[Rfam]
RNA: Ribosomal S15 leader
Organism: Vibrio campbellii
RNA sequence: CGUAGCGGCUGAAUCAGAGAUUGGCUGCUACAACUUUAAACCUACUCUUAUUAGGAGAGAAUUAUGUCUCUGAAUGCAGAAACUAAAGCAGCAAUCGUUGCAGAAUACGCACAAGGCGAA
Number, nucleotide and partner (000 for none) at each position: 001c000002g000003u000004a000005g000006c000007g026008g025009c024010u023011g022012a021013a000014u000015c000016a000017g000018a000019g000020a000021u012022u011023g010024g009025c008026u007027g000028c000029u000030a000031c000032a000033a000034c000035u000036u000037u000038a000039a000040a000041c000042c000043u000044a000045c000046u000047c000048u000049u000050a000051u074052u073053a000054g071055g070056a069057g068058a000059g000060a000061a000062u000063u000064a000065u000066g000067u000068c057069u056070c055071u054072g000073a052074a051075u000076g000077c000078a000079g000080a000081a000082a000083c000084u000085a000086a000087a000088g000089c000090a000091g000092c000093a000094a000095u000096c000097g000098u000099u000100g000101c000102a000103g000104a000105a000106u000107a000108c000109g000110c000111a000112c000113a000114a000115g000116g000117c000118g000119a000120a000